About this RNA
The family of this 69-nucleotide sequence from Cocos nucifera is "Plastid-clpP 5UTR RNA". Plastid clpP is a non-coding RNA (ncRNA) recognised in plastids. A search with the family's covariance model found it, with a score of 76 bits. A reference for the family is Richter et al. (2023), "Retrograde signaling in plants: A critical review focusing on the GUN pathway and beyond", Plant Commun. It is annotated as a cis-regulatory element. Taxonomically the source falls in Cocos (Eukaryota, Embryophyta, Tracheophyta, Attaleinae).

[Rfam]
RNA sequence: AAUUCUGUUCAUAAGAACAAAGAGAAGCAGAUCUAUUCUAUACCUGAUAAAUACCAAUUCGAAAUGGAG
Numbered sequence: 001a002a003u004u005c006u007g008u009u010c011a012u013a014a015g016a017a018c019a020a021a022g023a024g025a026a027g028c029a030g031a032u033c034u035a036u037u038c039u040a041u042a043c044c045u046g047a048u049a050a051a052u053a054c055c056a057a058u059u060c061g062a063a064a065u066g067g068a069g
Stems, first nucleotide, its partner, number of pairs: 003022002006019005044067002053058001